[Rfam]
RNA sequence: UAGGUGGGUUCCGAAAAGCCUUGAAUAGAGUAGGAA
Dot-bracket structure: .((((....[[[.....))))...........]]].
About this RNA:
DUF805b RNA: a 36-nucleotide RNA. The base pairs follow the family's consensus structure, which is taken from published work. Rfam's curators put it in the seed alignment.